The family of this 89-nucleotide RNA sequence from Alligator mississippiensis is "mir-15 microRNA precursor family". Lineage of the source: Eukaryota > Deuterostomia > Sarcopterygii > Sauria > Alligator. Its family is annotated with RISC complex and miRNA-mediated post-transcriptional gene silencing in the Gene Ontology. Its Rfam clan is "mir-15 clan". About the family: This family represents the related mir-15a and mir-15b sequences. A search with the family's covariance model found it, with a score of 75 bits.
[Rfam]
RNA sequence: GUCAAUCGUACCUUAGCAGCACGUAAAUAUUGGUGUUAAGAUUCUGUAAAUAUCUCCAGUAUUAACUGUGCUGCUGAAGUAAGUUUGGC
Numbered sequence: 001g002u003c004a005a006u007c008g009u010a011c012c013u014u015a016g017c018a019g020c021a022c023g024u025a026a027a028u029a030u031u032g033g034u035g036u037u038a039a040g041a042u043u044c045u046g047u048a049a050a051u052a053u054c055u056c057c058a059g060u061a062u063u064a065a066c067u068g069u070g071c072u073g074c075u076g077a078a079g080u081a082a083g084u085u086u087g088g089c
Base pairs, nucleotide, nucleotide: 001089002088003087004086005085013077014076015075016074017073018072019071020070021069022068023067024065026063027062028061029060030059031058032057033056035054
Dot-bracket structure: (((((.......((((((((((((.((((((((.(..................).)))))))).).))))))))))).......)))))